[Rfam]
Rfam assigns this 84-nucleotide RNA sequence from Lentivirus humimdef1 to the family "HIV gag stem loop 3 (GSL3)". Rfam describes the family as follows. This family consists of several HIV gag stem loop 3 (GSL3) sequences. GSL3 is known to direct specific packaging of HIV-1 genomic RNA. Deletion of GSL3 leads to decreases in both viral RNA packaging and dimerisation. On this family, see Rong et al., Virology 2003: "Deletion of stem-loop 3 is compensated by second-site mutations within the Gag protein of human immunodeficiency virus type 1". Its family is annotated with viral RNA genome packaging in the Gene Ontology. Rfam's curators put it in the seed alignment.

RNA sequence: GGCCAGGGGGAAAGAAAAAAUAUAAACUGAAACAUAUGGUAUGGGCAAGAAGGGAGCUGGAAAAAUCCGCACUUAACCCUAGCC
Numbered sequence: 001g002g003c004c005a006g007g008g009g010g011a012a013a014g015a016a017a018a019a020a021u022a023u024a025a026a027c028u029g030a031a032a033c034a035u036a037u038g039g040u041a042u043g044g045g046c047a048a049g050a051a052g053g054g055a056g057c058u059g060g061a062a063a064a065a066u067c068c069g070c071a072c073u074u075a076a077c078c079c080u081a082g083c084c
Stems, first nucleotide, its partner, number of pairs: 001084003005080004